[Rfam]
RNA sequence: UGCUGCCGUAGAGGUGCGAUUGUAAAGAGUCGCUAUUGUUGGGGUGAUGCCAAUGAACAAUAGUAAAAGGUGCAAUCGCCGAAGUGAGUUGAAGAUCAAAACAACUUGCUGGGGUUGUUUCAAAUAGGAACAACACUGCCAUAGUCCUUAUGUAAACUAUGGAGCGCUACUGUAGGG
Numbered sequence: 001u002g003c004u005g006c007c008g009u010a011g012a013g014g015u016g017c018g019a020u021u022g023u024a025a026a027g028a029g030u031c032g033c034u035a036u037u038g039u040u041g042g043g044g045u046g047a048u049g050c051c052a053a054u055g056a057a058c059a060a061u062a063g064u065a066a067a068a069g070g071u072g073c074a075a076u077c078g079c080c081g082a083a084g085u086g087a088g089u090u091g092a093a094g095a096u097c098a099a100a101a102c103a104a105c106u107u108g109c110u111g112g113g114g115u116u117g118u119u120u121c122a123a124a125u126a127g128g129a130a131c132a133a134c135a136c137u138g139c140c141a142u143a144g145u146c147c148u149u150a151u152g153u154a155a156a157c158u159a160u161g162g163a164g165c166g167c168u169a170c171u172g173u174a175g176g177g
Stems, first nucleotide, its partner, number of pairs: 006172001008170004016079009032064008083110009111137002114134008139162007